[Rfam]
RNA sequence: GGUUUCCGCUGGUCCAAAUCCAAUCACCUGAAUUUCAGAUGAGAAACAAUUCUCCAUUGGUAACAAACCGUUAUCCAUUAAGCGGAGGAAAUCUUAU
Numbered sequence: 001g002g003u004u005u006c007c008g009c010u011g012g013u014c015c016a017a018a019u020c021c022a023a024u025c026a027c028c029u030g031a032a033u034u035u036c037a038g039a040u041g042a043g044a045a046a047c048a049a050u051u052c053u054c055c056a057u058u059g060g061u062a063a064c065a066a067a068c069c070g071u072u073a074u075c076c077a078u079u080a081a082g083c084g085g086a087g088g089a090a091a092u093c094u095u096a097u
Base pairs, nucleotide, nucleotide: 010022011021012020052087053086054085055084056078057077059075060074061073062072063071064070
RNA: Plastid-rps12 3UTR RNA